[Rfam]
RNA sequence: UGAUUUUGCUAUGAGGAUUCUUAAGCUCCCUCUUCUGAGUUAAAGCUGAGGACACUUGCUGGCAGAAUCGAACCAAUAAUAACUAGCCACUACUGAGCAA
Dot-bracket structure: .....((((.......................................................................................))))
Rfam assigns this 100-nucleotide sequence from Solanum commersonii to the family "Small nucleolar RNA R30/Z108". Pairs were carried over by alignment from the consensus structure, which was predicted with PFOLD. Gene Ontology terms of the family: nucleolus and RNA processing. snoR30 is a C/D box small nucleolar RNA which acts as a methylation guide for 18S ribosomal RNA in plants. A search with the family's covariance model found it, with a score of 84 bits. Taxonomically the source falls in Solanum (Eukaryota, Streptophytina, Euphyllophyta, Solanaceae).